[Rfam]
Rfam assigns this 78-nucleotide RNA from Hermetia illucens to the family "mir-11 microRNA precursor family".
RNA sequence: UUUUCUGUCGGGAACUCUUGCUGUGACUGCUUUCGAAAUUUAGAUAUGAGCAUCACAGUCUGAGUUCUUGCUGGGCGA
Numbered sequence: 001u002u003u004u005c006u007g008u009c010g011g012g013a014a015c016u017c018u019u020g021c022u023g024u025g026a027c028u029g030c031u032u033u034c035g036a037a038a039u040u041u042a043g044a045u046a047u048g049a050g051c052a053u054c055a056c057a058g059u060c061u062g063a064g065u066u067c068u069u070g071c072u073g074g075g076c077g078a
Base pairs, nucleotide, nucleotide: 004075005074006073009070010069011068012067013066014065015064016063017062021058022057023056024055025054026053029051030050031049
The match comes from Rfam's covariance-model search (59 bits). The base pairs follow the family's consensus structure, which was predicted with RNAalifold. The family is grouped with related families in Rfam's "mir-6 clan".